[Rfam]
RNA sequence: UUGCCUUAAACUAAUGAGUAAGGAAAACAAAGCGAGUGGUGGGAACCGCUUGCAGCGCCCAACCUCAAAGGUGCGCAAGAAUUUGUGGAGGGAUGAUAGGCUGGCCGAGCGCUGACGCUGCGCUUACUUUGUGCAGAACUCGCUCGAGCGGGCCUCCC
Number, nucleotide and partner (000 for none) at each position: 001u000002u000003g000004c023005c022006u021007u020008a019009a000010a000011c000012u000013a000014a000015u000016g000017a000018g000019u008020a007021a006022g005023g004024a000025a000026a000027a000028c000029a000030a000031a000032g053033c052034g051035a050036g049037u048038g047039g046040u000041g000042g000043g000044a000045a000046c039047c038048g037049c036050u035051u034052g033053c032054a000055g076056c075057g074058c073059c000060c000061a000062a000063c000064c000065u000066c000067a000068a000069a000070g000071g000072u000073g058074c057075g056076c055077a000078a000079g000080a000081a000082u000083u000084u000085g000086u000087g000088g000089a000090g000091g000092g000093a000094u000095g156096a000097u000098a155099g154100g153101c152102u151103g000104g149105c000106c146107g145108a000109g143110c142111g141112c000113u000114g000115a000116c000117g000118c000119u135120g134121c133122g132123c131124u000125u000126a000127c000128u000129u000130u000131g123132u122133g121134c120135a119136g000137a000138a000139c000140u000141c111142g110143c109144u000145c107146g106147a000148g000149c104150g000151g102152g101153c100154c099155u098156c095157c000158c000
U12 minor spliceosomal RNA: a 158-nucleotide RNA from Theobroma cacao. The family has 62 seed sequences and 2,106 matches in Rfam 15.1. Rfam classes the family as a spliceosomal small nuclear RNA. The base pairs follow the family's consensus structure.